Shown here is an 84-nucleotide RNA sequence from Microbacterium immunditiarum, a member of the family "ZMP/ZTP riboswitch aptamer (pfl RNA motif)".
[Rfam]
RNA sequence: UUCCGAUGUCGCGACUGGCGUUGAGGUGGACCCACCACCGGGGAGCGACCGUCACGGCACCGACCGCACGCCUGGGCCGGGCCU
Numbered sequence: 001u002u003c004c005g006a007u008g009u010c011g012c013g014a015c016u017g018g019c020g021u022u023g024a025g026g027u028g029g030a031c032c033c034a035c036c037a038c039c040g041g042g043g044a045g046c047g048a049c050c051g052u053c054a055c056g057g058c059a060c061c062g063a064c065c066g067c068a069c070g071c072c073u074g075g076g077c078c079g080g081g082c083c084u
Stems, first nucleotide, its partner, number of pairs: 005052001008049005015042002017072005026038004061079002064076002

NCBI's taxonomy places the organism under Bacteria, Bacillati, Actinomycetota, Actinomycetes, Microbacterium. It scores 50 bits against the family's covariance model. Pairs were carried over by alignment from the consensus structure, which is taken from published work.